Shown here is a 99-nucleotide RNA sequence from Musa troglodytarum, a member of the family "Small nucleolar RNA snR60/Z15/Z230/Z193/J17". The match comes from Rfam's covariance-model search (69 bits). Gene Ontology terms of the family: RNA processing and nucleolus. NCBI's taxonomy places the organism under Eukaryota, Viridiplantae, Euphyllophyta, Zingiberales, Musa. It is annotated as a C/D-box small nucleolar RNA. For this family Rfam cites "A computational screen for methylation guide snoRNAs in yeast" (Lowe and Eddy, Science, 1999).
RNA sequence: AGAGGUCGCGUGAUGAUCGGAUGCAUAGUUCAAAUGAUAACCCCUUUUUUAAGGGUUAUGAUUAUUUGAAACGUCUUUCGCUCCUAUCUGAUGACCUCC
Numbered sequence: 001a002g003a004g005g006u007c008g009c010g011u012g013a014u015g016a017u018c019g020g021a022u023g024c025a026u027a028g029u030u031c032a033a034a035u036g037a038u039a040a041c042c043c044c045u046u047u048u049u050u051a052a053g054g055g056u057u058a059u060g061a062u063u064a065u066u067u068g069a070a071a072c073g074u075c076u077u078u079c080g081c082u083c084c085u086a087u088c089u090g091a092u093g094a095c096c097u098c099c
Stems, first nucleotide, its partner, number of pairs: 004096005